The family of this 56-nucleotide sequence from Piscinibacter sp. HJYY11 is "nhaA-I RNA". Rfam describes the family as follows. Acidobacteria, Alphaproteobacteria, Betaproteobacteria and Gammaproteobacteria, Verrucomicrobia, cand. division NC10. NCBI's taxonomy places the organism under Bacteria, Pseudomonadati, Pseudomonadota, Betaproteobacteria, Piscinibacter. The match comes from Rfam's covariance-model search (54 bits). By type it is a riboswitch. The base pairs follow the family's consensus structure, which is taken from published work.

[Rfam]
RNA sequence: GGGUGCUGGGCCGCAGACACGGUGCAGCAGGUUCAUGCGACGGUCGGGCCGCCUCG
Numbered sequence: 001g002g003g004u005g006c007u008g009g010g011c012c013g014c015a016g017a018c019a020c021g022g023u024g025c026a027g028c029a030g031g032u033u034c035a036u037g038c039g040a041c042g043g044u045c046g047g048g049c050c051g052c053c054u055c056g
Base pairs, nucleotide, nucleotide: 005028006027007026008025010023011022012021038056039055040054042053043052044051